[Rfam]
RNA: Small nucleolar RNA snoR27
Organism: Artemisia annua
RNA sequence: UAUGGAUCAAUGAUGUAUUAAAGAAACUGCGUUAUCUAUCUGUUAAAUCCUUUUUCAAAAGGAUCUGAUGAAAAAAUAUUCUUCCUGAGAUCCUUA
Numbered sequence: 001u002a003u004g005g006a007u008c009a010a011u012g013a014u015g016u017a018u019u020a021a022a023g024a025a026a027c028u029g030c031g032u033u034a035u036c037u038a039u040c041u042g043u044u045a046a047a048u049c050c051u052u053u054u055u056c057a058a059a060a061g062g063a064u065c066u067g068a069u070g071a072a073a074a075a076a077u078a079u080u081c082u083u084c085c086u087g088a089g090a091u092c093c094u095u096a
Stems, first nucleotide, its partner, number of pairs: 001096002004093004